Rfam assigns this 117-nucleotide RNA to the family "Glutamine riboswitch aptamer (glnA leader)".

RNA sequence: UACGUUCAUCAUAUAGCAAUAUAUGACGGAAGUAAGCAACCUGAAAACCUCUUACAUUUGUAAGGCAAGCAAGUACCGAAAGGGAACGAGACCGAAAGUUGACUGAAGGAACGCGUU
Numbered sequence: 001u002a003c004g005u006u007c008a009u010c011a012u013a014u015a016g017c018a019a020u021a022u023a024u025g026a027c028g029g030a031a032g033u034a035a036g037c038a039a040c041c042u043g044a045a046a047a048c049c050u051c052u053u054a055c056a057u058u059u060g061u062a063a064g065g066c067a068a069g070c071a072a073g074u075a076c077c078g079a080a081a082g083g084g085a086a087c088g089a090g091a092c093c094g095a096a097a098g099u100u101g102a103c104u105g106a107a108g109g110a111a112c113g114c115g116u117u
Stems, first nucleotide, its partner, number of pairs: 003113005009026007029114001035104002
Notes:
Rfam's curators put it in the seed alignment.